Shown here is a 54-nucleotide RNA sequence from Salvelinus namaycush, a member of the family "UnaL2 LINE 3' element". The base pairs follow the family's consensus structure, which is taken from published work. Taxonomically the source falls in Salvelinus (Eukaryota, Deuterostomia, Actinopteri, Clupeocephala). The family's RNA type in Rfam is cis-regulatory element. Its family is annotated with transposition, RNA-mediated in the Gene Ontology. About the family: The eel long interspersed element (LINE) UnaL2 and its partner short interspersed element (SINE) share a conserved 3' tail containing a stem-loop that is critical for their retrotransposition. Presumably, the first step of retrotransposition is the recognition of their 3' tails by UnaL2-encoded reverse transcriptase. The solution structure of a 17-nucleotide RNA derived from the 3' tail of UnaL2 was determined by NMR. A search with the family's covariance model found it, with a score of 56 bits.
[Rfam]
RNA sequence: UGCACUCACUACUGUAAGUUGCUCUGUAUAAGAGCGUCUGCUAAAUUAAUAAAA
Numbered sequence: 001u002g003c004a005c006u007c008a009c010u011a012c013u014g015u016a017a018g019u020u021g022c023u024c025u026g027u028a029u030a031a032g033a034g035c036g037u038c039u040g041c042u043a044a045a046u047u048a049a050u051a052a053a054a
Stems, first nucleotide, its partner, number of pairs: 013043001014041003020036006